This 255-nucleotide RNA from an Alphaproteobacteria bacterium belongs to the Rfam family "permuted transfer-messenger RNA".

RNA sequence: GGCAAUAAACAGCUUAUGUAAUAGAUGGAGCGGACCCGGGGGCGGUACCCGGCGUCUCCACCAAGAAAAAUUAUGGGGAUGAAAUAGGAUCGACGCACUUUGAAAGAUACGUCUCUUUGCCCGGUAUAAUACCACCGUGACGGAUUGAAAAAAAUAAUUGGAAACAGAAAACCAGUUAGAAUGCUUUCACCAGAGCAAAUUGCAGGGUUCCAACCUUUCAAUUUUGCUGAAACUAGAUCUGCAAUCGCAGCUUAA
Number, nucleotide and partner (000 for none) at each position: 001g121002g120003c119004a118005a117006u000007a000008a000009a000010c000011a000012g000013c000014u000015u109016a108017u107018g000019u000020a000021a000022u000023a000024g000025a000026u000027g098028g000029a000030g096031c095032g094033g000034a000035c000036c052037c051038g050039g049040g048041g000042g000043c000044g000045g000046u000047a000048c040049c039050c038051g037052g036053c081054g080055u079056c078057u077058c076059c075060a000061c000062c000063a000064a000065g000066a000067a000068a000069a000070a000071u000072u000073a000074u000075g059076g058077g057078g056079a055080u054081g053082a000083a000084a000085u000086a000087g000088g000089a000090u000091c000092g000093a000094c032095g031096c030097a000098c027099u000100u000101u000102g000103a000104a000105a000106g000107a017108u016109a015110c000111g000112u000113c000114u000115c000116u000117u005118u004119g003120c002121c001122c137123g136124g135125u134126a000127u000128a000129a000130u000131a000132c000133c000134a125135c124136c123137g122138u000139g000140a000141c000142g000143g000144a000145u000146u000147g000148a000149a000150a000151a000152a000153a000154a000155u000156a000157a000158u000159u000160g000161g000162a000163a000164a000165c000166a000167g000168a000169a000170a000171a000172c000173c000174a000175g000176u000177u000178a000179g000180a000181a000182u000183g000184c000185u000186u000187u000188c000189a000190c000191c000192a000193g000194a000195g000196c000197a000198a000199a000200u000201u000202g000203c000204a000205g000206g000207g000208u000209u000210c000211c000212a000213a000214c000215c000216u000217u000218u000219c000220a000221a000222u000223u000224u000225u000226g000227c000228u000229g000230a000231a000232a000233c000234u000235a000236g000237a000238u000239c000240u000241g000242c000243a000244a000245u000246c000247g000248c000249a000250g000251c000252u000253u000254a000255a000